[Rfam]
RNA sequence: UGCGAGACCAAUCAAAGGAGUAGUUUCCCACCUAGGAGUUACUUUACCAUAUUCUGAAUUC
Numbered sequence: 001u002g003c004g005a006g007a008c009c010a011a012u013c014a015a016a017g018g019a020g021u022a023g024u025u026u027c028c029c030a031c032c033u034a035g036g037a038g039u040u041a042c043u044u045u046a047c048c049a050u051a052u053u054c055u056g057a058a059u060u061c
Base pairs, nucleotide, nucleotide: 017045018044019043020042021041022040023039024038025037026036027035

This 61-nucleotide RNA from Prunus persica belongs to the Rfam family "Plastid-psbN 5UTR RNA". Rfam describes the family as follows. Plastid psbN is a non-coding RNA (ncRNA) recognised in plastids. It was reported as a conserved 11 stem-loop in the prime untranslated region (5UTR) of psbN genes. The family has 63 seed sequences and 2,345 matches in Rfam 15.1. Lineage of the source: Eukaryota > Mesangiospermae > Gunneridae > rosids > Prunus. A reference for the family is Richter et al. (2023), "Retrograde signaling in plants: A critical review focusing on the GUN pathway and beyond", Plant Commun. It is annotated as a cis-regulatory element.